[Rfam]
RNA sequence: GCAAUAUCGCUUUCUCGCGGCAGAACCGUACUGUGUUCCUGUCGAUGCUGGGGAAUUCGUGGUUCUGGUUCUACGGCGCGCUAGUGCUGUCGCAGUUCCCCGUGUUCGCCAAGGACUACCUG
Numbered sequence: 001g002c003a004a005u006a007u008c009g010c011u012u013u014c015u016c017g018c019g020g021c022a023g024a025a026c027c028g029u030a031c032u033g034u035g036u037u038c039c040u041g042u043c044g045a046u047g048c049u050g051g052g053g054a055a056u057u058c059g060u061g062g063u064u065c066u067g068g069u070u071c072u073a074c075g076g077c078g079c080g081c082u083a084g085u086g087c088u089g090u091c092g093c094a095g096u097u098c099c100c101c102g103u104g105u106u107c108g109c110c111a112a113g114g115a116c117u118a119c120c121u122g
Stems, first nucleotide, its partner, number of pairs: 009048002012045002016041002019038002023036001025034002051121003055117001057115002060112001062110001064104001067099002071095002074092005080087002
The family of this 122-nucleotide sequence from Massilia polaris is "Burkholderia RNA 11".
The base pairs follow the family's consensus structure, which was predicted with RNAfold.
It scores 67 bits against the family's covariance model.
Rfam classes the family as a small RNA.
Rfam describes the family as follows. Co-purified with Hfq, expression confirmed by Northern blot.
The literature on the family includes a 2013 paper in Genomics by Ramos et al., "Experimental identification of small non-coding regulatory RNAs in the opportunistic human pathogen Burkholderia cenocepacia J2315".